[Rfam]
RNA sequence: AGCCACUACUUAUUUCCAUGGUUUUCCCUUUGUUCGCAAAAGGAAGCGUUUUUGGGAAUAUGGUGUGUGUGUUGUAAUUGGGCAGCGGCCAGACAACCGUAGGGAUGGUAUCCACAGAUUAUGGGCUUUUCUUUCCCUCGUUCUCUACUGAUUCCAUCCCACAUUU
Numbered sequence: 001a002g003c004c005a006c007u008a009c010u011u012a013u014u015u016c017c018a019u020g021g022u023u024u025u026c027c028c029u030u031u032g033u034u035c036g037c038a039a040a041a042g043g044a045a046g047c048g049u050u051u052u053u054g055g056g057a058a059u060a061u062g063g064u065g066u067g068u069g070u071g072u073u074g075u076a077a078u079u080g081g082g083c084a085g086c087g088g089c090c091a092g093a094c095a096a097c098c099g100u101a102g103g104g105a106u107g108g109u110a111u112c113c114a115c116a117g118a119u120u121a122u123g124g125g126c127u128u129u130u131c132u133u134u135c136c137c138u139c140g141u142u143c144u145c146u147a148c149u150g151a152u153u154c155c156a157u158c159c160c161a162c163a164u165u166u
Base pairs, nucleotide, nucleotide: 003055004054005053009048013046014045015044016043017042022041023040024039025038027036102160103159104158105157106156107155108154110153121141122140123139124138125136
Dot-bracket structure: ..(((...(...(((((....((((.(........).))))))))).)....)))..............................................(((((((.(..........(((((..........).))))...........))))))))......

Rfam assigns this 166-nucleotide sequence from Glycine max to the family "small nucleolar RNA snoR143". A search with the family's covariance model found it, with a score of 60 bits. On this family, see Chen and Wu, Nucleic Acids Res 2009: "Mining small RNA sequencing data: a new approach to identify small nucleolar RNAs in Arabidopsis". Rfam classes the family as an H/ACA-box small nucleolar RNA. Its family is annotated with nucleolus and RNA processing in the Gene Ontology. Taxonomically the source falls in Glycine subgen. Soja (Eukaryota, Euphyllophyta, Spermatophyta, Papilionoideae).